[Rfam]
RNA: Small nucleolar RNA SNORA49
RNA sequence: CUUCCUCAGCCUUACUCCAGGGACUUUCUUGUCCAUAGAGUGCCCUGGCAUUGCCUGAGGAGAAAGCAGAAAGCACAUUUCCCUCCCCAUUAAGAGCCUGAUCUUCUUUUGGGGCCUACAUUUGGAGCUGACAUU
Numbered sequence: 001c002u003u004c005c006u007c008a009g010c011c012u013u014a015c016u017c018c019a020g021g022g023a024c025u026u027u028c029u030u031g032u033c034c035a036u037a038g039a040g041u042g043c044c045c046u047g048g049c050a051u052u053g054c055c056u057g058a059g060g061a062g063a064a065a066g067c068a069g070a071a072a073g074c075a076c077a078u079u080u081c082c083c084u085c086c087c088c089a090u091u092a093a094g095a096g097c098c099u100g101a102u103c104u105u106c107u108u109u110u111g112g113g114g115c116c117u118a119c120a121u122u123u124g125g126a127g128c129u130g131a132c133a134u135u
Stems, first nucleotide, its partner, number of pairs: 003061007011053001017048006023041005072129003076125001085114005092108004